[Rfam]
RNA sequence: GGGGUUCCGGUUCACGUCUUCCCAUCCGCGGCAGGCGACCCGGCGGCC
Numbered sequence: 001g002g003g004g005u006u007c008c009g010g011u012u013c014a015c016g017u018c019u020u021c022c023c024a025u026c027c028g029c030g031g032c033a034g035g036c037g038a039c040c041c042g043g044c045g046g047c048c
Stems, first nucleotide, its partner, number of pairs: 003048003007043004015037005021031002
Overview:
Rfam assigns this 48-nucleotide sequence from Actinoplanes awajinensis to the family "L31-Actinobacteria ribosomal protein leader". The source organism's lineage runs through Bacteria, Bacillati, Micromonosporales, Micromonosporaceae and Actinoplanes awajinensis. By type it is a cis-regulatory leader. It scores 50 bits against the family's covariance model.